[Rfam]
RNA sequence: ACGUCCCGCCUCGUGAUCGUCUUCUCAACCUUCACUGCGGCGGGCGGCUGAAAAGACGGACCCCCGUGAGGACGUGACUCACGGGGGUCUGUC
Numbered sequence: 001a002c003g004u005c006c007c008g009c010c011u012c013g014u015g016a017u018c019g020u021c022u023u024c025u026c027a028a029c030c031u032u033c034a035c036u037g038c039g040g041c042g043g044g045c046g047g048c049u050g051a052a053a054a055g056a057c058g059g060a061c062c063c064c065c066g067u068g069a070g071g072a073c074g075u076g077a078c079u080c081a082c083g084g085g086g087g088u089c090u091g092u093c
Base pairs, nucleotide, nucleotide: 002046003045005044006043007042008041009040010039013035014034015033016032019029020028055093056092057091058090059089060088061087062086063085064084065083066082067081068080069079070078
RNA: sodF sRNA
Organism: Streptomyces xanthii